RNA sequence: AUAUUAUAAAUAGAGCAAGCGAUACACUUUCUUGAAGUGUGUGGGGCUGGGCUGGCAAAAGAGCUGGCAGCAGGAUAAAAUACCUGUGGGACUAAU
Numbered sequence: 001a002u003a004u005u006a007u008a009a010a011u012a013g014a015g016c017a018a019g020c021g022a023u024a025c026a027c028u029u030u031c032u033u034g035a036a037g038u039g040u041g042u043g044g045g046g047c048u049g050g051g052c053u054g055g056c057a058a059a060a061g062a063g064c065u066g067g068c069a070g071c072a073g074g075a076u077a078a079a080a081u082a083c084c085u086g087u088g089g090g091a092c093u094a095a096u
Stems, first nucleotide, its partner, number of pairs: 011094003016090001018048003022042006051068005070087005
Shown here is a 96-nucleotide RNA from Desulfosporosinus cupriresistens, a member of the family "NiCo (Nickel/Cobalt) riboswitch aptamer". NCBI's taxonomy places the organism under Bacteria, Bacillati, Eubacteriales, Desulfitobacteriaceae, Desulfosporosinus. The family is grouped with related families in Rfam's "NiCo_riboswitches". A reference for the family is Furukawa et al. (2015), "Bacterial riboswitches cooperatively bind Ni(2+) or Co(2+) ions and control expression of heavy metal transporters", Mol Cell. The match comes from Rfam's covariance-model search (61 bits).